[Rfam]
RNA sequence: CGCGUUUUUCGCCCAGGCGGAGCUCGACCGCCGCCUGAAGUCUUGAAGACCUUCAUCGACCAGCAUCGCAAUGCUUUCGGGGUCGAGCCGCUCUGCAAGGUUCUGCAGGUUGCCCCG
Numbered sequence: 001c002g003c004g005u006u007u008u009u010c011g012c013c014c015a016g017g018c019g020g021a022g023c024u025c026g027a028c029c030g031c032c033g034c035c036u037g038a039a040g041u042c043u044u045g046a047a048g049a050c051c052u053u054c055a056u057c058g059a060c061c062a063g064c065a066u067c068g069c070a071a072u073g074c075u076u077u078c079g080g081g082g083u084c085g086a087g088c089c090g091c092u093c094u095g096c097a098a099g100g101u102u103c104u105g106c107a108g109g110u111u112g113c114c115c116c117g
Stems, first nucleotide, its partner, number of pairs: 016032005078117005089112002092109006